[Rfam]
RNA sequence: GGUUGUAAGCUUGAGGCCACAGCAGAGGCAUUAAUGGCGCAGCCCUGUCAGAUUCCAACAAUUCUGUGAAUUCUGCU
Numbered sequence: 001g002g003u004u005g006u007a008a009g010c011u012u013g014a015g016g017c018c019a020c021a022g023c024a025g026a027g028g029c030a031u032u033a034a035u036g037g038c039g040c041a042g043c044c045c046u047g048u049c050a051g052a053u054u055c056c057a058a059c060a061a062u063u064c065u066g067u068g069a070a071u072u073c074u075g076c077u
Stems, first nucleotide, its partner, number of pairs: 013045001015044003021077007028040002049066004054061001
RNA: Mammalian CPEB3 ribozyme